[Rfam]
RNA sequence: UGGCACCCAACAUGGGGCCUGGCAUGGGGGAUUCAACGAGGGAGCCAUUCGAGAGCCUGAGUAUGAAGCAGAAAAUGAAAGUAAAUUCCGAGGCCAAUGCCAUACAAGUGCCUGCUGCAUUGCCAGAGCCAUGGUGAGUGAACAGCAGCCCCCUUCCCCUUCUCCGGCGUGGGUCAAGCAUUAAGCAAGCAUGAGCUCUUUGUAGAAAGCCUUAGCAAGGCACUUAAGACAUGAGGUAUUAAGGUAAAGGAAAAGGAUUUAUUACAAUAUUUUAAGUUUAUUCAUAAGGUUUGCCUGUG
Numbered sequence: 001u002g003g004c005a006c007c008c009a010a011c012a013u014g015g016g017g018c019c020u021g022g023c024a025u026g027g028g029g030g031a032u033u034c035a036a037c038g039a040g041g042g043a044g045c046c047a048u049u050c051g052a053g054a055g056c057c058u059g060a061g062u063a064u065g066a067a068g069c070a071g072a073a074a075a076u077g078a079a080a081g082u083a084a085a086u087u088c089c090g091a092g093g094c095c096a097a098u099g100c101c102a103u104a105c106a107a108g109u110g111c112c113u114g115c116u117g118c119a120u121u122g123c124c125a126g127a128g129c130c131a132u133g134g135u136g137a138g139u140g141a142a143c144a145g146c147a148g149c150c151c152c153c154u155u156c157c158c159c160u161u162c163u164c165c166g167g168c169g170u171g172g173g174u175c176a177a178g179c180a181u182u183a184a185g186c187a188a189g190c191a192u193g194a195g196c197u198c199u200u201u202g203u204a205g206a207a208a209g210c211c212u213u214a215g216c217a218a219g220g221c222a223c224u225u226a227a228g229a230c231a232u233g234a235g236g237u238a239u240u241a242a243g244g245u246a247a248a249g250g251a252a253a254a255g256g257a258u259u260u261a262u263u264a265c266a267a268u269a270u271u272u273u274a275a276g277u278u279u280a281u282u283c284a285u286a287a288g289g290u291u292u293g294c295c296u297g298u299g
Stems, first nucleotide, its partner, number of pairs: 006030003012025003035049002038046001088134002092130002098125001099123002103119001105117002139176003143173001183224001185221002232274008242260004283299004288294001
Source information
A member of the RNA family "Mason-Pfizer monkey virus packaging signal" from Octodon degus, 299 nucleotides long. This family represents a group of sequences that are related to the Mason-Pfizer monkey virus (MPMV) packaging signal. By type it is a cis-regulatory element. The literature on the family includes a 1995 paper in J Virol by Harrison et al., "Secondary structure model of the Mason-Pfizer monkey virus 5' leader sequence: identification of a structural motif common to a variety of retroviruses". Lineage of the source: Eukaryota > Eumetazoa > Bilateria > Octodontidae > Octodon.